RNA sequence: UUCGCAAGUCCGCUUAAUUUCCUGUAAAGGAAAGCGGGGGAACCAACAAUGAUCAGGCCGGGAAGUGGGAGCCGGAAGAUCAUUAGGGGUGAAUCCUGUUCAGUCGCCAGCAGGGCAAGUGCCUGCAUGGUCCAAGAACGGGUAGGGCGACUCUCACCGCCCGAAUCCGACAGCUAACCUCGUCAGCGUAUGGAGAGAGGAUGG
Numbered sequence: 001u002u003c004g005c006a007a008g009u010c011c012g013c014u015u016a017a018u019u020u021c022c023u024g025u026a027a028a029g030g031a032a033a034g035c036g037g038g039g040g041a042a043c044c045a046a047c048a049a050u051g052a053u054c055a056g057g058c059c060g061g062g063a064a065g066u067g068g069g070a071g072c073c074g075g076a077a078g079a080u081c082a083u084u085a086g087g088g089g090u091g092a093a094u095c096c097u098g099u100u101c102a103g104u105c106g107c108c109a110g111c112a113g114g115g116c117a118a119g120u121g122c123c124u125g126c127a128u129g130g131u132c133c134a135a136g137a138a139c140g141g142g143u144a145g146g147g148c149g150a151c152u153c154u155c156a157c158c159g160c161c162c163g164a165a166u167c168c169g170a171c172a173g174c175u176a177a178c179c180u181c182g183u184c185a186g187c188g189u190a191u192g193g194a195g196a197g198a199g200g201a202u203g204g
Base pairs, nucleotide, nucleotide: 011188012187013186014185018033019032020031021030022029023028034183035182036181037180038179039178044086087168088167089166095142096141097140098139099138100137101136145162146161147160148159

Description: c-di-AMP riboswitch aptamer (ydaO/yuaA leader): a 204-nucleotide RNA from Paenibacillus sp. CAA11. It scores 90 bits against the family's covariance model. The source organism's lineage runs through Bacteria, Bacillati, Bacilli, Caryophanales and Paenibacillus.